[Rfam]
RNA sequence: CCAGGGGCUGGCGCCCCUGGCUACAUCAUGCCGCUCCUUCGGAGCU
Numbered sequence: 001c002c003a004g005g006g007g008c009u010g011g012c013g014c015c016c017c018u019g020g021c022u023a024c025a026u027c028a029u030g031c032c033g034c035u036c037c038u039u040c041g042g043a044g045c046u
Base pairs, nucleotide, nucleotide: 001020002019003018004017005016006015007014008013033045034044035043036042037041
A member of the RNA family "Acido-Lenti-1 RNA" from Lacipirellula parvula, 46 nucleotides long. It scores 51 bits against the family's covariance model. The family's consensus secondary structure is taken from published work.